A member of the RNA family "Small nucleolar RNA psi18S-841/snoR66" from Operophtera brumata, 131 nucleotides long.
Rfam describes the family as follows. psi18S-841 is a member of the H/ACA class of snoRNA. This family is responsible for guiding the modification of uridine 841 in Drosophila 18S rRNA to pseudouridine.

[Rfam]
RNA sequence: UGCAAGGGCACUCUGUGUUAUUCAUCUUUAAUAUGAUAAUUACAAUUUGUAACCUUGCUAAAGUAAAUCUACCAAAUCCUAUUCUAAAUAGCUUGCGUUUCGCUAUUUGGUCAUAUUGGUAGAUACAUAAC
Numbered sequence: 001u002g003c004a005a006g007g008g009c010a011c012u013c014u015g016u017g018u019u020a021u022u023c024a025u026c027u028u029u030a031a032u033a034u035g036a037u038a039a040u041u042a043c044a045a046u047u048u049g050u051a052a053c054c055u056u057g058c059u060a061a062a063g064u065a066a067a068u069c070u071a072c073c074a075a076a077u078c079c080u081a082u083u084c085u086a087a088a089u090a091g092c093u094u095g096c097g098u099u100u101c102g103c104u105a106u107u108u109g110g111u112c113a114u115a116u117u118g119g120u121a122g123a124u125a126c127a128u129a130a131c
Stems, first nucleotide, its partner, number of pairs: 002058006010050002014044003017040005023035002064130001066128001067124003071120003075117002084110006091103002
By type it is an H/ACA-box small nucleolar RNA. The family's consensus secondary structure was predicted with RNAfold. Its family is annotated with nucleolus and RNA processing in the Gene Ontology. The source organism's lineage runs through Eukaryota, Eumetazoa, Panarthropoda, Mandibulata and Operophtera. Its Rfam clan is "SNORA28 clan".